Source information:
A member of the RNA family "Small nucleolar RNA SNORA26" from Galemys pyrenaicus, 119 nucleotides long. A reference for the family is Huttenhofer et al. (2001), "RNomics: an experimental approach that identifies 201 candidates for novel, small, non-messenger RNAs in mouse", EMBO J. The organism belongs to Galemys, within Eukaryota. By type it is an H/ACA-box small nucleolar RNA. From the family's description: The snoRNA HBI-6 belong to the H/ACA family of snoRNAs, guiding the pseudouridylation of position U4522 if the 28S rRNA. HBI-6 is the human orthologue of mouse MBI-6 snoRNA. A search with the family's covariance model found it, with a score of 84 bits.

[Rfam]
RNA sequence: GUGUCCUUUUAAGGAGGAUGCAGUAUUUUAAGAGGUUAACACAGAAGGGUAAAGUCUCUAUAUCUAUAAAACCCAGAGAAAAGAUUGUAAAACUUCUCUUUGAAUCUGAAGUCACAGCU
Numbered sequence: 001g002u003g004u005c006c007u008u009u010u011a012a013g014g015a016g017g018a019u020g021c022a023g024u025a026u027u028u029u030a031a032g033a034g035g036u037u038a039a040c041a042c043a044g045a046a047g048g049g050u051a052a053a054g055u056c057u058c059u060a061u062a063u064c065u066a067u068a069a070a071a072c073c074c075a076g077a078g079a080a081a082a083g084a085u086u087g088u089a090a091a092a093c094u095u096c097u098c099u100u101u102g103a104a105u106c107u108g109a110a111g112u113c114a115c116a117g118c119u
Stems, first nucleotide, its partner, number of pairs: 002051009014040001017037001019035001021032001063110001065108002074102006081095003085092002